[Rfam]
RNA sequence: GCGAGGUGACGAUGAAAAUCAUGUCUGUCAAUCCACUGAUAUAAAUAGUGAUGUUAUUCUUGAAUCCCGACAGGUUCUGAUCGC
Numbered sequence: 001g002c003g004a005g006g007u008g009a010c011g012a013u014g015a016a017a018a019u020c021a022u023g024u025c026u027g028u029c030a031a032u033c034c035a036c037u038g039a040u041a042u043a044a045a046u047a048g049u050g051a052u053g054u055u056a057u058u059c060u061u062g063a064a065u066c067c068c069g070a071c072a073g074g075u076u077c078u079g080a081u082c083g084c
Base pairs, nucleotide, nucleotide: 001084002083003082004081
The family of this 84-nucleotide RNA sequence from Tetracentron sinense is "Small nucleolar RNA snoR14". The family's RNA type in Rfam is C/D-box small nucleolar RNA. The source organism's lineage runs through Eukaryota, Viridiplantae, Streptophyta, Magnoliopsida and Tetracentron. Its family is annotated with nucleolus and RNA processing in the Gene Ontology.